[Rfam]
RNA sequence: CUGUGCACUUAAAACAGAUGGCUUAAUACUUCCCUUGACUUUGACACUGUGCUAGAGUGAUGUAUGUUCUUUCCCUCACAUUGAAAGGACUGUUUAUCCUUUUAAAUGCAUUCAGAAAGUCAGCACAUUA
Numbered sequence: 001c002u003g004u005g006c007a008c009u010u011a012a013a014a015c016a017g018a019u020g021g022c023u024u025a026a027u028a029c030u031u032c033c034c035u036u037g038a039c040u041u042u043g044a045c046a047c048u049g050u051g052c053u054a055g056a057g058u059g060a061u062g063u064a065u066g067u068u069c070u071u072u073c074c075c076u077c078a079c080a081u082u083g084a085a086a087g088g089a090c091u092g093u094u095u096a097u098c099c100u101u102u103u104a105a106a107u108g109c110a111u112u113c114a115g116a117a118a119g120u121c122a123g124c125a126c127a128u129u130a
Stems, first nucleotide, its partner, number of pairs: 003052005010046001014042001016035002021030001023028001054070006076116002079108004083103007
Description
The record is a 130-nucleotide RNA from Leptonychotes weddellii, which matches "Small nucleolar RNA SNORA22" in Rfam. Rfam links the family to the GO terms nucleolus and RNA processing. NCBI's taxonomy places the organism under Eukaryota, Bilateria, Deuterostomia, Amniota, Leptonychotes. Rfam describes the family as follows. ACA22 is a member of the H/ACA class of snoRNA that guide the sites of modification of uridines to pseudouridines. It scores 85 bits against the family's covariance model. The family's RNA type in Rfam is H/ACA-box small nucleolar RNA.